[Rfam]
RNA sequence: UUUCCCAUUUAUUUGCUGCCAUUCUUUCAGUAGUAUGAGCAGUUAUACGCAUGGGAGACAUUAAGAUUAGUCCUGUAAAUUAAGAUGAAAACAUAAUUUCAUCUGUGUUACAGGGUCUAUCACAUUA
Numbered sequence: 001u002u003u004c005c006c007a008u009u010u011a012u013u014u015g016c017u018g019c020c021a022u023u024c025u026u027u028c029a030g031u032a033g034u035a036u037g038a039g040c041a042g043u044u045a046u047a048c049g050c051a052u053g054g055g056a057g058a059c060a061u062u063a064a065g066a067u068u069a070g071u072c073c074u075g076u077a078a079a080u081u082a083a084g085a086u087g088a089a090a091a092c093a094u095a096a097u098u099u100c101a102u103c104u105g106u107g108u109u110a111c112a113g114g115g116u117c118u119a120u121c122a123c124a125u126u127a
Stems, first nucleotide, its partner, number of pairs: 003056006015043005022035001068119003072115002074112004083104008